[Rfam]
RNA: mir-144 microRNA precursor family
RNA sequence: GUUUUGUGUGGGAUAUCAUCAUAUACUGUAAGUUUGUUAACGACACUACAGUAUAGAUGAUGUACUAUACCAGGCCU
Numbered sequence: 001g002u003u004u005u006g007u008g009u010g011g012g013a014u015a016u017c018a019u020c021a022u023a024u025a026c027u028g029u030a031a032g033u034u035u036g037u038u039a040a041c042g043a044c045a046c047u048a049c050a051g052u053a054u055a056g057a058u059g060a061u062g063u064a065c066u067a068u069a070c071c072a073g074g075c076c077u
Stems, first nucleotide, its partner, number of pairs: 007069002010066002013063008022055009032044003